[Rfam]
RNA sequence: AGAGUUAGACAGAUUGUCGCCGCCACUUUGUGGGGGAGGAAAGUCCGGGCUCCAUAGGACAAACGCCGGGUAACCCCCGGGAAGAGCGAUCUUUAGAAAGUGCCACAGAAAACAGACCGCCGUGAAAACGGUAAGGGUGAAACGGUGGGGUAAGAGCCCACCAGCCGUUAUGGCAACAUAGCGGGCUAGGUAAACCUCGUUCGGAGCAAGACCAAAUAGAAGGGCGCACCACAGCUUGUCCGGCUGAUGCCCUUGGGUAGGUUGCUUGAGGCUUUAAGUAAUUAAAGCCCUAGAGAAAUGACAAUCGUUUUUAUAGCAAUAUAAAAAAGACAAAACCCGGCUUAUCGUUUAACUCUCGUU
Numbered sequence: 001a002g003a004g005u006u007a008g009a010c011a012g013a014u015u016g017u018c019g020c021c022g023c024c025a026c027u028u029u030g031u032g033g034g035g036g037a038g039g040a041a042a043g044u045c046c047g048g049g050c051u052c053c054a055u056a057g058g059a060c061a062a063a064c065g066c067c068g069g070g071u072a073a074c075c076c077c078c079g080g081g082a083a084g085a086g087c088g089a090u091c092u093u094u095a096g097a098a099a100g101u102g103c104c105a106c107a108g109a110a111a112a113c114a115g116a117c118c119g120c121c122g123u124g125a126a127a128a129c130g131g132u133a134a135g136g137g138u139g140a141a142a143c144g145g146u147g148g149g150g151u152a153a154g155a156g157c158c159c160a161c162c163a164g165c166c167g168u169u170a171u172g173g174c175a176a177c178a179u180a181g182c183g184g185g186c187u188a189g190g191u192a193a194a195c196c197u198c199g200u201u202c203g204g205a206g207c208a209a210g211a212c213c214a215a216a217u218a219g220a221a222g223g224g225c226g227c228a229c230c231a232c233a234g235c236u237u238g239u240c241c242g243g244c245u246g247a248u249g250c251c252c253u254u255g256g257g258u259a260g261g262u263u264g265c266u267u268g269a270g271g272c273u274u275u276a277a278g279u280a281a282u283u284a285a286a287g288c289c290c291u292a293g294a295g296a297a298a299u300g301a302c303a304a305u306c307g308u309u310u311u312u313a314u315a316g317c318a319a320u321a322u323a324a325a326a327a328a329g330a331c332a333a334a335a336c337c338c339g340g341c342u343u344a345u346c347g348u349u350u351a352a353c354u355c356u357c358g359u360u
Stems, first nucleotide, its partner, number of pairs: 001356010011345001012306007020036002023033004041343003045340005050206004057241004062201004066080005081094005095197002100195002102191003117136002119132005144162006164186001165184008210263004220254006232246005270289008
RNA: Bacterial RNase P class A
Organism: Desulfovibrio litoralis